[Rfam]
RNA sequence: CGGUCGAGUGGCACGCGGUGGGACGCGCGCCGAGAAUGGACCCGUCGACCCGCCGUCACUGACGUGAACCGCCGCUGUGGCCCCGGCAGCGUGCAGGUU
Numbered sequence: 001c002g003g004u005c006g007a008g009u010g011g012c013a014c015g016c017g018g019u020g021g022g023a024c025g026c027g028c029g030c031c032g033a034g035a036a037u038g039g040a041c042c043c044g045u046c047g048a049c050c051c052g053c054c055g056u057c058a059c060u061g062a063c064g065u066g067a068a069c070c071g072c073c074g075c076u077g078u079g080g081c082c083c084c085g086g087c088a089g090c091g092u093g094c095a096g097g098u099u
Stems, first nucleotide, its partner, number of pairs: 002042004010031003014027004067099004071094001073091005

A member of the RNA family "Rhodo-rpoB RNA" from Sagittula stellata, 99 nucleotides long. The base pairs follow the family's consensus structure, which is taken from published work.